[Rfam]
RNA sequence: ACACCCUUUUAAGAUAGUCCCGAGAGACUGGCAAAGGGAAAGGAUUACACGGAAUCGGUUCAUGGACGUAUAUAACGGACCAAAUGAACCACACUAAGUAGGCUUAUUCCGUGUAGACACCCAACUCUUUGCCAAACUGGUAAAGAGUUUUUUCUAU
Numbered sequence: 001a002c003a004c005c006c007u008u009u010u011a012a013g014a015u016a017g018u019c020c021c022g023a024g025a026g027a028c029u030g031g032c033a034a035a036g037g038g039a040a041a042g043g044a045u046u047a048c049a050c051g052g053a054a055u056c057g058g059u060u061c062a063u064g065g066a067c068g069u070a071u072a073u074a075a076c077g078g079a080c081c082a083a084a085u086g087a088a089c090c091a092c093a094c095u096a097a098g099u100a101g102g103c104u105u106a107u108u109c110c111g112u113g114u115a116g117a118c119a120c121c122c123a124a125c126u127c128u129u130u131g132c133c134a135a136a137c138u139g140g141u142a143a144a145g146a147g148u149u150u151u152u153u154c155u156a157u
Stems, first nucleotide, its partner, number of pairs: 004038006015030005045116011123149011
A member of the RNA family "PyrR binding site" from Baia soyae, 157 nucleotides long.
This family represents the PyrR binding site and terminator structure.
Rfam links the family to the GO terms pyrimidine nucleobase transport and pyrimidine nucleobase biosynthetic process.
The match comes from Rfam's covariance-model search (55 bits).
The source organism's lineage runs through Bacteria, Bacillota, Caryophanales, Thermoactinomycetaceae and Baia.